[Rfam]
RNA: Enterobacterial sRNA STnc240
Organism: Plautia stali symbiont
Nucleotides: 075
Stems, first nucleotide, its partner, number of pairs: 011021002042066009
Number, partner (000 for none) and nucleotide at each position: 001000c002000u003000a004000a005000g006000u007000u008000g009000g010000g011021g012020c013000a014000a015000a016000a017000u018000a019000c020012g021011c022000g023000c024000c025000c026000u027000g028000c029000a030000a031000a032000a033000g034000a035000c036000a037000a038000a039000a040000c041000a042066u043065a044064a045063c046062c047061g048060a049059c050058g051000c052000u053000u054000a055000u056000u057000a058050c059049g060048u061047c062046g063045g064044u065043u066042a067000u068000u069000u070000u071000u072000u073000u074000u075000g